This 176-nucleotide sequence from Oceanobacillus bengalensis belongs to the Rfam family "Lysine riboswitch aptamer".
NCBI's taxonomy places the organism under Bacteria, Bacillati, Bacilli, Caryophanales, Oceanobacillus.
A search with the family's covariance model found it, with a score of 115 bits.

RNA sequence: CGGUGAGGUAGAGGUGCAUACAACAAUAGUAACGAGCAGGAGAAUGACAACGAUGAUUGCUUGUGAAAGGGUUGUUUGCCGAAGCAUAAUAAGGGUCAAACUUAUUAGAGCUGGUAUUCCUUUGAAUAAAGGGUGUACUGUCAUGCAGGGAAGUUGCGUGGAGAACUACUGAUCGA
Numbered sequence: 001c002g003g004u005g006a007g008g009u010a011g012a013g014g015u016g017c018a019u020a021c022a023a024c025a026a027u028a029g030u031a032a033c034g035a036g037c038a039g040g041a042g043a044a045u046g047a048c049a050a051c052g053a054u055g056a057u058u059g060c061u062u063g064u065g066a067a068a069g070g071g072u073u074g075u076u077u078g079c080c081g082a083a084g085c086a087u088a089a090u091a092a093g094g095g096u097c098a099a100a101c102u103u104a105u106u107a108g109a110g111c112u113g114g115u116a117u118u119c120c121u122u123u124g125a126a127u128a129a130a131g132g133g134u135g136u137a138c139u140g141u142c143a144u145g146c147a148g149g150g151a152a153g154u155u156g157c158g159u160g161g162a163g164a165a166c167u168a169c170u171g172a173u174c175g176a
Stems, first nucleotide, its partner, number of pairs: 007170005016079003020075005032064008083112003087107007113139005119133005141161007
Dot-bracket structure: ......(((((....(((.(((((.......((((((((.................))))))))......))))).)))...(((.(((((((.......)))))))..)))(((((.(((((.....))))).))))).(((((((.......)))))))....)))))......